[Rfam]
Nucleotides: 430
Stems, first nucleotide, its partner, number of pairs: 001426010011415001012361007020040002023037005045413003049410005054250004063293001065291001067246005072086005087112001088110009113241002118239002120235003135181002137177003142172002145169003189207006208230001209228004214223003254318004264309006285299005325344008
Number, partner (000 for none) and nucleotide at each position: 001426c002425c003424g004423g005422g006421g007420a008419g009418c010417c011415g012361g013360g014359c015358a016357g017356c018355c019000g020040c021039g022000u023037c024036c025035c026034u027033c028000u029000u030000u031000a032000u033027g034026g035025g036024g037023g038000c039021c040020g041000a042000g043000g044000a045413a046412a047411g048000u049410c050409c051408g052407g053406g054250c055249u056248c057247c058000a059000c060000g061000a062000a063293a064000c065291a066000a067246g068245g069244g070243u071242g072086g073085c074084g075083g076082g077000u078000a079000a080000c081000g082076c083075c084074c085073g086072c087112c088110g089109a090108c091107u092106c093105c094104g095103g096102a097000c098000g099000u100000g101000u102096u103095c104094c105093g106092g107091g108090g109089u110088u111000a112087g113241g114240g115000a116000a117000a118239g119238u120235g121234c122233c123000a124000c125000a126000g127000a128000g129000a130000g131000u132000a133000u134000a135181c136180c137177g138176c139175c140000g141000a142172u143171g144000g145169c146168c147167c148000g149000c150000g151000c152000u153000c154000c155000u156000u157000c158000u159000g160000g161000a162000g163000a164000u165000u166000g167147g168146g169145g170000g171143c172142a173000c174000a175139g176138g177137c178000a179000a180136g181135g182000g183000u184000g185000a186000a187000a188000g189207g190206g191205u192204g193203c194202g195000g196000u197000a198000a199000a200000a201000g202194c203193g204192c205191a206190c207189c208230g209228g210227g211226g212225u213000u214223c215222u216221g217000g218000u219000a220000a221216c222215a223214g224000c225212g226211c227210c228209c229000g230208c231000a232000u233122g234121g235120c236000a237000a238119a239118c240114c241113c242071c243070a244069c245068c246067c247057g248056g249055a250054g251000c252000a253000a254318g255317a256316c257315c258000g259000c260000a261000u262000a263000g264309g265308g266307g267306u268305c269304u270000c271000g272000c273000g274000c275000c276000u277000u278000a279000c280000g281000g282000g283000c284000a285299g286298g287297a288296g289295u290000g291065u292000u293063u294000c295289g296288c297287u298286c299285c300000c301000a302000u303000g304269a305268g306267a307266c308265c309264c310000g311000g312000g313000u314000u315257g316256g317255u318254u319000g320000c321000u322000g323000g324000a325344g326343c327342a328341u329340u330339g331338g332337a333000g334000c335000a336000a337332u338331c339330c340329a341328a342327u343326g344325c345000c346000u347000a348000g349000a350000u351000g352000a353000a354000u355018g356017g357016c358015u359014g360013c361012c362000c363000c364000u365000g366000c367000c368000g369000a370000u371000a372000c373000g374000g375000u376000c377000c378000c379000u380000u381000u382000u383000g384000g385000g386000a387000u388000a389000c390000c391000g392000u393000c394000g395000g396000c397000a398000g399000g400000a401000c402000a403000g404000a405000a406053c407052c408051c409050g410049g411047c412046u413045u414000a415011c416000a417010g418009g419008c420007u421006c422005c423004c424003c425002g426001g427000c428000a429000c430000u
Shown here is a 430-nucleotide RNA sequence from Erythrobacter sp. EC-HK427, a member of the family "Bacterial RNase P class A". Taxonomically the source falls in Erythrobacter (Bacteria, Pseudomonadati, Alphaproteobacteria, Erythrobacteraceae). A search with the family's covariance model found it, with a score of 288 bits. The family's RNA type in Rfam is ribozyme. Gene Ontology terms of the family: ribonuclease P activity, tRNA processing and dimeric ribonuclease P complex.